RNA sequence: ACCGCAUACUUACCUACUAUAUGGUAGCUGAUAUACGUGUAUUUCUCCUACCAUAUAGAAGGUAAGUGCGUGGUUU
Numbered sequence: 001a002c003c004g005c006a007u008a009c010u011u012a013c014c015u016a017c018u019a020u021a022u023g024g025u026a027g028c029u030g031a032u033a034u035a036c037g038u039g040u041a042u043u044u045c046u047c048c049u050a051c052c053a054u055a056u057a058g059a060a061g062g063u064a065a066g067u068g069c070g071u072g073g074u075u076u
Stems, first nucleotide, its partner, number of pairs: 001074005007068009017058011030045002033042003
Dot-bracket structure: (((((.(((((((((.(((((((((((..((.(((....))).))..))))))))))).))))))))).)))))..

This 76-nucleotide RNA sequence from Ameiurus melas belongs to the Rfam family "mir-7563 microRNA precursor family". The family's consensus secondary structure was predicted with RNAalifold. Rfam links the family to the GO terms RISC complex and miRNA-mediated post-transcriptional gene silencing.